Annotation:
Rfam assigns this 123-nucleotide sequence from Castor canadensis to the family "Small nucleolar RNA SNORA32". The organism belongs to Castor, within Eukaryota. It is annotated as an H/ACA-box small nucleolar RNA. About the family: ACA32 is a member of the H/ACA class of snoRNA that guide the sites of modification of uridines to pseudouridines. It scores 102 bits against the family's covariance model. The family has 9 seed sequences and 615 matches in Rfam 15.1.
RNA sequence: UGGUCAUUAACCAAGGCUCUUUAGAAUGUAGUCUCUCAUUUGCUGUGGACAUGUCCAUAAAACGUUUUCUUGUUAGGUUUUCUAUAUGCUGCCUGGUUAGCAAUCAACCUACUGGGAAUAUUU
Numbered sequence: 001u002g003g004u005c006a007u008u009a010a011c012c013a014a015g016g017c018u019c020u021u022u023a024g025a026a027u028g029u030a031g032u033c034u035c036u037c038a039u040u041u042g043c044u045g046u047g048g049a050c051a052u053g054u055c056c057a058u059a060a061a062a063c064g065u066u067u068u069c070u071u072g073u074u075a076g077g078u079u080u081u082c083u084a085u086a087u088g089c090u091g092c093c094u095g096g097u098u099a100g101c102a103a104u105c106a107a108c109c110u111a112c113u114g115g116g117a118a119u120a121u122u123u
Base pairs, nucleotide, nucleotide: 003055005053006052007051011048012047013046028043029042030041031040069116070115071114072113076109077108078107079106087102088101089100